[Rfam]
Source information: The record is a 110-nucleotide sequence from Mycolicibacterium fallax, which matches "Glycine riboswitch aptamer" in Rfam. Its family is annotated with glycine biosynthetic process in the Gene Ontology. Taxonomically the source falls in Mycobacterium (subgen. Mycolicibacterium) (Bacteria, Bacillati, Mycobacteriales, Mycobacteriaceae). It scores 34 bits against the family's covariance model.
RNA sequence: AUGCCUCUGGAAAGCGGCGGCCCUGCCCGCCCGCCCAUGGGGAAAGGCCCGCCCGCAGCGGGCCGAAUCUCUCAGGCGCCCGGUUGCGGGUGGACGACAGAGGGGGAGGA
Numbered sequence: 001a002u003g004c005c006u007c008u009g010g011a012a013a014g015c016g017g018c019g020g021c022c023c024u025g026c027c028c029g030c031c032c033g034c035c036c037a038u039g040g041g042g043a044a045a046g047g048c049c050c051g052c053c054c055g056c057a058g059c060g061g062g063c064c065g066a067a068u069c070u071c072u073c074a075g076g077c078g079c080c081c082g083g084u085u086g087c088g089g090g091u092g093g094a095c096g097a098c099a100g101a102g103g104g105g106g107a108g109g110a
Base pairs, nucleotide, nucleotide: 002105004103005102006101007100008099009098016031017030018029019028033077034076035075037072040071041070042069046064047063048062049061050060051059

This family represents the bacterial glycine riboswitch.